[Rfam]
RNA sequence: CUGCCAGAUACCGCAUCACCCGAUCACUGAUAGCUCAACGGUAUCUGGCGGAACAAGUAAAUAAUGUAGCUGCCUUUUGAGCGGGUUUGCUGCAGACCGAAACGGAGGUUUCCGUUUGGACUGUGGUUUUUUCACUAUGCCCAAAGCAGCUGCACC
Numbered sequence: 001c002u003g004c005c006a007g008a009u010a011c012c013g014c015a016u017c018a019c020c021c022g023a024u025c026a027c028u029g030a031u032a033g034c035u036c037a038a039c040g041g042u043a044u045c046u047g048g049c050g051g052a053a054c055a056a057g058u059a060a061a062u063a064a065u066g067u068a069g070c071u072g073c074c075u076u077u078u079g080a081g082c083g084g085g086u087u088u089g090c091u092g093c094a095g096a097c098c099g100a101a102a103c104g105g106a107g108g109u110u111u112c113c114g115u116u117u118g119g120a121c122u123g124u125g126g127u128u129u130u131u132u133c134a135c136u137a138u139g140c141c142c143a144a145a146g147c148a149g150c151u152g153c154a155c156c
Base pairs, nucleotide, nucleotide: 001051002050003049004048005047007045008044009043010042011041012040013039015031016030017029018028033082034081035080036079037078038077067152068151069150070149071148072147073146089127090126091125092124093123102115103114104113105112106111
DUF2800 RNA: a 156-nucleotide RNA.
The family's consensus secondary structure is taken from published work.